[Rfam]
Nucleotides: 134
Stems, first nucleotide, its partner, number of pairs: 003062004014052002017048005026041004082126003085122001087117006094110005
Number, partner (000 for none) and nucleotide at each position: 001000u002000c003062g004061c005060u006059c007000u008000u009000c010000a011000a012000a013000a014052g015051c016000a017048c018047u019046g020045g021044c022000u023000a024000u025000a026041g027040g028039g029038c030000u031000c032000u033000g034000u035000c036000u037000u038029g039028u040027c041026c042000a043000u044021g045020c046019c047018a048017g049000c050000c051015g052014u053000c054000a055000u056000a057000u058000a059006g060005a061004g062003c063000a064000a065000u066000a067000u068000g069000a070000a071000u072000u073000a074000u075000c076000u077000u078000g079000u080000u081000u082126u083125u084124g085122g086000g087117u088116g089115a090114g091113g092112u093000g094110u095109a096108a097107u098106u099000g100000u101000u102000c103000c104000u105000a106098g107097a108096u109095u110094a111000g112092a113091u114090c115089u116088c117087a118000a119000u120000a121000a122085c123000a124084c125083g126082a127000u128000g129000a130000c131000a132000a133000u134000u
Rfam assigns this 134-nucleotide RNA sequence to the family "Caenorhabditis snoRNA ceN82". The family's consensus secondary structure was predicted with RNAalifold. The match comes from Rfam's covariance-model search (141 bits). By type it is an H/ACA-box small nucleolar RNA.